[Rfam]
RNA sequence: AUACUAUGACAGUUGCAUAGUUCAACAGACUGAAUCAUGAAGAGAUGUAUACUAUCUGUCUGAUGUAUCU
Numbered sequence: 001a002u003a004c005u006a007u008g009a010c011a012g013u014u015g016c017a018u019a020g021u022u023c024a025a026c027a028g029a030c031u032g033a034a035u036c037a038u039g040a041a042g043a044g045a046u047g048u049a050u051a052c053u054a055u056c057u058g059u060c061u062g063a064u065g066u067a068u069c070u
Stems, first nucleotide, its partner, number of pairs: 001068004006038004013028003043057005
A member of the RNA family "Small nucleolar RNA SNORD77" from Sapajus apella, 70 nucleotides long.
The literature on the family includes a 2004 paper in Curr Biol by Tycowski et al., "Guide RNAs with 5' caps and novel box C/D snoRNA-like domains for modification of snRNAs in metazoa".
The family's RNA type in Rfam is C/D-box small nucleolar RNA.
U77 belongs to the C/D family of snoRNAs. It is predicted to guide 2'O-ribose methylation of large 28S rRNA subunit at position A1521. The C/D snoRNAs U44, U47, U74, U75, U76, U78, U79, U80 and U81 share the same host gene as U77 (non-coding).
A search with the family's covariance model found it, with a score of 77 bits.
Pairs were carried over by alignment from the consensus structure, which was predicted with RNAalifold.